[Rfam]
About this RNA: Rfam assigns this 69-nucleotide RNA sequence from Ophiophagus hannah to the family "mir-133 microRNA precursor family". For this family Rfam cites "Identification of tissue-specific microRNAs from mouse" (Lagos-Quintana et al., Curr Biol, 2002). Rfam 15.1 lists 3,763 matches to the family in 801 species. It is one of the family's seed sequences. The base pairs follow the family's consensus structure, which was predicted with PFOLD. mir-133 was first experimentally characterised in mouse and homologues have since been discovered in several other species. The mature sequence is excised from the 3' arm of the hairpin.
RNA sequence: CUCCUGGGGCUGGUAAAAAGGAACCAGAUCGACUGGCGACUGAUUUGGUCCCCUUCAACCAGCUGGGGG
Numbered sequence: 001c002u003c004c005u006g007g008g009g010c011u012g013g014u015a016a017a018a019a020g021g022a023a024c025c026a027g028a029u030c031g032a033c034u035g036g037c038g039a040c041u042g043a044u045u046u047g048g049u050c051c052c053c054u055u056c057a058a059c060c061a062g063c064u065g066g067g068g069g
Stems, first nucleotide, its partner, number of pairs: 003067002008064007017055002020051003024048007